A member of the RNA family "Glycine riboswitch aptamer" from Stackebrandtia nassauensis, 106 nucleotides long.
RNA sequence: AAAACCCGUACGGGAGAGUCCUCGCCGGGACCACCGGUCACCGGCGCGGCGCCGAAGGAGCAACUCCUCCCCGGAACCUCUCAGGCACAAGGACCGUACGGACUGG
Numbered sequence: 001a002a003a004a005c006c007c008g009u010a011c012g013g014g015a016g017a018g019u020c021c022u023c024g025c026c027g028g029g030a031c032c033a034c035c036g037g038u039c040a041c042c043g044g045c046g047c048g049g050c051g052c053c054g055a056a057g058g059a060g061c062a063a064c065u066c067c068u069c070c071c072c073g074g075a076a077c078c079u080c081u082c083a084g085g086c087a088c089a090a091g092g093a094c095c096g097u098a099c100g101g102a103c104u105g106g
Stems, first nucleotide, its partner, number of pairs: 006101008020049002023046006051086003054082002058080003064074002
The source organism's lineage runs through Bacteria, Actinomycetota, Glycomycetales, Stackebrandtia and Stackebrandtia nassauensis. Gene Ontology term of the family: glycine biosynthetic process.